The record is an 84-nucleotide sequence from Mesobacillus campisalis, which matches "c-di-GMP-I riboswitch aptamer" in Rfam.
RNA sequence: AAUAUGCAAUGGCAAAAUCACUGAAAAGUGGUGACGCAAAGCUAUAGGGGCCUCCGUGAACCACAAGGCCAGCCAGCUGCCAUC
Number, nucleotide and partner (000 for none) at each position: 001a000002a000003u000004a000005u000006g000007c000008a000009a000010u000011g000012g037013c036014a000015a000016a000017a032018u031019c030020a029021c028022u027023g000024a000025a000026a000027a022028g021029u020030g019031g018032u017033g000034a000035c000036g013037c012038a000039a000040a078041g077042c076043u075044a000045u000046a000047g074048g073049g070050g069051c068052c000053u000054c000055c000056g064057u063058g062059a000060a000061c000062c058063a057064c056065a000066a000067g000068g051069c050070c049071a000072g000073c048074c047075a043076g042077c041078u040079g000080c000081c000082a000083u000084c000